[Rfam]
RNA sequence: AGGUUAAUUUCGCCACGUCCUAUGGCAACACCUGCAUGACCCACUUCCUGUGGA
Numbered sequence: 001a002g003g004u005u006a007a008u009u010u011c012g013c014c015a016c017g018u019c020c021u022a023u024g025g026c027a028a029c030a031c032c033u034g035c036a037u038g039a040c041c042c043a044c045u046u047c048c049u050g051u052g053g054a
Stems, first nucleotide, its partner, number of pairs: 001033004012026004041053004